[Rfam]
RNA sequence: UGCUUUCGCUAGGGGUGUUGGCAUGGCGCGUAUCGACCCGCCAUGUCGACUGAGAAAGUCCCUUUGAACCUGAUUGAGGUAAUCCUCGCGCAGGGAAGCAGGCCAGACACCGC
Numbered sequence: 001u002g003c004u005u006u007c008g009c010u011a012g013g014g015g016u017g018u019u020g021g022c023a024u025g026g027c028g029c030g031u032a033u034c035g036a037c038c039c040g041c042c043a044u045g046u047c048g049a050c051u052g053a054g055a056a057a058g059u060c061c062c063u064u065u066g067a068a069c070c071u072g073a074u075u076g077a078g079g080u081a082a083u084c085c086u087c088g089c090g091c092a093g094g095g096a097a098g099c100a101g102g103c104c105a106g107a108c109a110c111c112g113c
Stems, first nucleotide, its partner, number of pairs: 006101001008099003011063004016057001017050012069094004075088004
RNA: TPP riboswitch aptamer (THI element)